[Rfam]
RNA sequence: UUAAUGAUUUGUAUGGCGUUGAAAGAGUGCCAUCUCUGGUCCCUAGAUGGCGCUCUUUCAACGCCAUACAAAUCACAGUUA
Numbered sequence: 001u002u003a004a005u006g007a008u009u010u011g012u013a014u015g016g017c018g019u020u021g022a023a024a025g026a027g028u029g030c031c032a033u034c035u036c037u038g039g040u041c042c043c044u045a046g047a048u049g050g051c052g053c054u055c056u057u058u059c060a061a062c063g064c065c066a067u068a069c070a071a072a073u074c075a076c077a078g079u080u081a
Stems, first nucleotide, its partner, number of pairs: 005075009015065001017063010031049003
RNA: mir-2807 microRNA precursor family